[Rfam]
RNA: MIR5269 microRNA precursor family
RNA sequence: UUGGCUUAAAUUAAUGUAGGUCCUACACUUUAAAAAUAGAACACACAUAAAAUGGUGGAACAUACAUUAAUUUCAUUCAA
Numbered sequence: 001u002u003g004g005c006u007u008a009a010a011u012u013a014a015u016g017u018a019g020g021u022c023c024u025a026c027a028c029u030u031u032a033a034a035a036a037u038a039g040a041a042c043a044c045a046c047a048u049a050a051a052a053u054g055g056u057g058g059a060a061c062a063u064a065c066a067u068u069a070a071u072u073u074c075a076u077u078c079a080a
Stems, first nucleotide, its partner, number of pairs: 001080004006075001008073011023058003026054002029051004